[Rfam]
RNA sequence: ACAACAUUAGGACAGUCAGUAUUCCGAGCAAUAUCACCCGCUGGAAGAUCUUCCUUUUGUCUU
Numbered sequence: 001a002c003a004a005c006a007u008u009a010g011g012a013c014a015g016u017c018a019g020u021a022u023u024c025c026g027a028g029c030a031a032u033a034u035c036a037c038c039c040g041c042u043g044g045a046a047g048a049u050c051u052u053c054c055u056u057u058u059g060u061c062u063u
Stems, first nucleotide, its partner, number of pairs: 004060003010054003015049003020045001025044001027042003

mir-2774 microRNA precursor family: a 63-nucleotide sequence from Bombyx mori. A reference for the family is Liu et al. (2010), "MicroRNAs of Bombyx mori identified by Solexa sequencing", BMC Genomics. The base pairs follow the family's consensus structure, which was predicted with RNAalifold. The match comes from Rfam's covariance-model search (56 bits). Lineage of the source: Eukaryota > Altocrustacea > Allotriocarida > Hexapoda > Bombyx.